[Rfam]
Small nucleolar RNA psi28S-3378: a 148-nucleotide RNA from Drosophila grimshawi. Rfam describes the family as follows. psi28S-3378 is a member of the H/ACA class of snoRNA. The family's consensus secondary structure was predicted with CMfinder. Rfam classes the family as an H/ACA-box small nucleolar RNA.

RNA sequence: AGCACCAAAAUCAGUAACCAAGCGACUGCUAAACUAGCUUGGCGACUACGCUUGGGUGCUAACAUUAAUUACCGCUAUAAUGCCGUAUAUUAUAUAAAGAGCAUACUAACCCAACCAAUAGCAUGCUUGUGGCCUUGUUUUGAGACAC
Dot-bracket structure: ((((((......(((..((((((.............))))))..))).......)))))).........(..((..((((.(((((............((((((.(((..........))).))))))))))).))))..)).)....